The record is a 347-nucleotide RNA sequence from Oryctolagus cuniculus, which matches "Bag-1 internal ribosome entry site (IRES)" in Rfam. For this family Rfam cites "The p36 isoform of BAG-1 is translated by internal ribosome entry following heat shock" (Coldwell et al., Oncogene, 2001). From the family's description: This family represents the bag-1 internal ribosome entry site (IRES). When expressed the BAG-1 protein is known to enhance the anti-apoptotic properties of Bcl-2. Although bag-1 translation usually occurs via a cap-dependent mechanism it has been found to contain a IRES in its 5' UTR. Translation via the IRES has been found to be common following heat shock when cap-dependent scanning is compromised.
RNA sequence: AACAACCAAAAUUCUGGCGGGCCUGGCGGAGCGCGGCAACGCGCAGAGAUUGCGAGGCGACCGGGGCCAGCUGGGCCCCAGCGGCUCGCCCCUCGGCGGGGCCGGGAGCCGCGCCAGUCGGAGCCCCUGGCUGAGGGCGGUCAGCCAGCUUCUCAGCGCCCAUCCCUCCGGAGAGCAGCCGGGGGGCAUGACCGACCCACCGGGGCGCCGCCUCCGGCGCUCGCAGGCCACGGGUGAAGAAGAAAGUCCGUACCUGCUCGGCCCGGAGUGAGGAGGAGCCCCCGGCAGAGGAGGUGACCCCAGACGAGGUGAUCCAGGCGGAGGAGGUGACCGAGACUAAGGAAAUG
Numbered sequence: 001a002a003c004a005a006c007c008a009a010a011a012u013u014c015u016g017g018c019g020g021g022c023c024u025g026g027c028g029g030a031g032c033g034c035g036g037c038a039a040c041g042c043g044c045a046g047a048g049a050u051u052g053c054g055a056g057g058c059g060a061c062c063g064g065g066g067c068c069a070g071c072u073g074g075g076c077c078c079c080a081g082c083g084g085c086u087c088g089c090c091c092c093u094c095g096g097c098g099g100g101g102c103c104g105g106g107a108g109c110c111g112c113g114c115c116a117g118u119c120g121g122a123g124c125c126c127c128u129g130g131c132u133g134a135g136g137g138c139g140g141u142c143a144g145c146c147a148g149c150u151u152c153u154c155a156g157c158g159c160c161c162a163u164c165c166c167u168c169c170g171g172a173g174a175g176c177a178g179c180c181g182g183g184g185g186g187c188a189u190g191a192c193c194g195a196c197c198c199a200c201c202g203g204g205g206c207g208c209c210g211c212c213u214c215c216g217g218c219g220c221u222c223g224c225a226g227g228c229c230a231c232g233g234g235u236g237a238a239g240a241a242g243a244a245a246g247u248c249c250g251u252a253c254c255u256g257c258u259c260g261g262c263c264c265g266g267a268g269u270g271a272g273g274a275g276g277a278g279c280c281c282c283c284g285g286c287a288g289a290g291g292a293g294g295u296g297a298c299c300c301c302a303g304a305c306g307a308g309g310u311g312a313u314c315c316a317g318g319c320g321g322a323g324g325a326g327g328u329g330a331c332c333g334a335g336a337c338u339a340a341g342g343a344a345a346u347g
Base pairs, nucleotide, nucleotide: 020103021102022101023100024099026097027096041089042088043053044052045051046050061081063079064078065077066076067075068074144328145327146326149323167186168185169184203222204221205220206219207218208217209216210215255270256269257268258267259266